[Rfam]
Description: Shown here is an 84-nucleotide sequence from Tupaia belangeri, a member of the family "Y RNA". The source organism's lineage runs through Eukaryota, Opisthokonta, Metazoa, Amniota and Tupaia. Rfam's curators write: Y RNAs are components of the Ro ribonucleoprotein particle (Ro RNP), in association with Ro60 and La proteins. The Y RNAs and Ro60 and La proteins are well conserved, but the function of the Ro RNP is not known. In humans the RNA component can be one of four small RNAs -- hY1, hY3, hY4 and hY5. These small RNAs are predicted to fold into a conserved secondary structure containing three stem structures. The largest of the four, hY1, contains an additional hairpin. This family includes a significant number of annotated pseudogenes and the model is expected to discriminate poorly between real and Y RNA related pseudogenes.
RNA sequence: AGUUGGUCCGAGGAUUGUGGGUUAUUGUUAAGCUGAUUAACAUUGUCUCCCUCCCAUAUCCAUACUUGACUAGCUAUGCGCUUG
Numbered sequence: 001a002g003u004u005g006g007u008c009c010g011a012g013g014a015u016u017g018u019g020g021g022u023u024a025u026u027g028u029u030a031a032g033c034u035g036a037u038u039a040a041c042a043u044u045g046u047c048u049c050c051c052u053c054c055c056a057u058a059u060c061c062a063u064a065c066u067u068g069a070c071u072a073g074c075u076a077u078g079c080g081c082u083u084g
Stems, first nucleotide, its partner, number of pairs: 001075008010067002014063002016058006026042003030038002